RNA: MIR828 microRNA precursor family
RNA sequence: CUAACGUUUCUUGCUUAAAUGGGUAUUCCAUGAAAGUGAUUAACACUCCCGUGUAUACCUAAAUUAUGAGUGGGUUUCUCUCUUCAUGAGAUGCUCGUUUAAGCAAGCAAUCUUAG
Numbered sequence: 001c002u003a004a005c006g007u008u009u010c011u012u013g014c015u016u017a018a019a020u021g022g023g024u025a026u027u028c029c030a031u032g033a034a035a036g037u038g039a040u041u042a043a044c045a046c047u048c049c050c051g052u053g054u055a056u057a058c059c060u061a062a063a064u065u066a067u068g069a070g071u072g073g074g075u076u077u078c079u080c081u082c083u084u085c086a087u088g089a090g091a092u093g094c095u096c097g098u099u100u101a102a103g104c105a106a107g108c109a110a111u112c113u114u115a116g
Stems, first nucleotide, its partner, number of pairs: 004113001006111003010107018029088002